Rfam assigns this 77-nucleotide sequence from Bradyrhizobium sp. Leo170 to the family "chrB-a RNA". Lineage of the source: Bacteria > Pseudomonadati > Hyphomicrobiales > Nitrobacteraceae > Bradyrhizobium. A search with the family's covariance model found it, with a score of 77 bits. The family's consensus secondary structure is taken from published work. The family's RNA type in Rfam is cis-regulatory element.

[Rfam]
RNA sequence: UCUAUGGGGGUGUGCGAUCCCCCCACGAGGCGACAUGCCCAAGAAUCGCGUCCGAACUUCACCAAGGACGCCGCAUG
Numbered sequence: 001u002c003u004a005u006g007g008g009g010g011u012g013u014g015c016g017a018u019c020c021c022c023c024c025a026c027g028a029g030g031c032g033a034c035a036u037g038c039c040c041a042a043g044a045a046u047c048g049c050g051u052c053c054g055a056a057c058u059u060c061a062c063c064a065a066g067g068a069c070g071c072c073g074c075a076u077g
Stems, first nucleotide, its partner, number of pairs: 005025006048071006